[Rfam]
RNA sequence: GUGACGGGUCGCAACUGGCGUUCGCGUGGACCACCACGGGGGAGCGACACUCAGGGUCACGAGCCGCUCGCCUGGGCUCGCCGU
Numbered sequence: 001g002u003g004a005c006g007g008g009u010c011g012c013a014a015c016u017g018g019c020g021u022u023c024g025c026g027u028g029g030a031c032c033a034c035c036a037c038g039g040g041g042g043a044g045c046g047a048c049a050c051u052c053a054g055g056g057u058c059a060c061g062a063g064c065c066g067c068u069c070g071c072c073u074g075g076g077c078u079c080g081c082c083g084u
Stems, first nucleotide, its partner, number of pairs: 006050001008048005015041002017072004026037004061079005
RNA: ZMP/ZTP riboswitch aptamer (pfl RNA motif)
Organism: Pseudoclavibacter endophyticus